RNA sequence: AAUGACUCGAGCCAACCGGUCAAGGCUUUUCUUACAAUGCUUUGUUCGUCCGGCUCGCGUUAUGA
Numbered sequence: 001a002a003u004g005a006c007u008c009g010a011g012c013c014a015a016c017c018g019g020u021c022a023a024g025g026c027u028u029u030u031c032u033u034a035c036a037a038u039g040c041u042u043u044g045u046u047c048g049u050c051c052g053g054c055u056c057g058c059g060u061u062a063u064g065a
Base pairs, nucleotide, nucleotide: 002063003062005060006059008057009056010055011054012053013052017048018047021044022043023042025040026039

Shown here is a 65-nucleotide RNA from Capitella teleta, a member of the family "mir-375 microRNA precursor family". For this family Rfam cites "The developmental miRNA profiles of zebrafish as determined by small RNA cloning" (Chen et al., Genes Dev, 2005). Pairs were carried over by alignment from the consensus structure, which was predicted with RNAalifold.